[Rfam]
RNA sequence: AUACUUACCUGGCAGGGGAGCUGUUUCCCAUGAUCACGUCGGUGGGACUCCCAGGACGAGGCGUGUUCAUUGCACUCUGGCUGCGCUGACUCCUGCCAUUUCCCCAAAUGCGGGAAAUUCAACUGCAUAAUUUGUGGUAGUGGGGGACUGCGUUCGUGCUCUCCCCUA
Numbered sequence: 001a002u003a004c005u006u007a008c009c010u011g012g013c014a015g016g017g018g019a020g021c022u023g024u025u026u027c028c029c030a031u032g033a034u035c036a037c038g039u040c041g042g043u044g045g046g047a048c049u050c051c052c053a054g055g056a057c058g059a060g061g062c063g064u065g066u067u068c069a070u071u072g073c074a075c076u077c078u079g080g081c082u083g084c085g086c087u088g089a090c091u092c093c094u095g096c097c098a099u100u101u102c103c104c105c106a107a108a109u110g111c112g113g114g115a116a117a118u119u120c121a122a123c124u125g126c127a128u129a130a131u132u133u134g135u136g137g138u139a140g141u142g143g144g145g146g147a148c149u150g151c152g153u154u155c156g157u158g159c160u161c162u163c164c165c166c167u168a
Stems, first nucleotide, its partner, number of pairs: 012126004016052005027046005053094004058090001060087003064083002067080002098119001099117003103113002142167006150159003
RNA: U1 spliceosomal RNA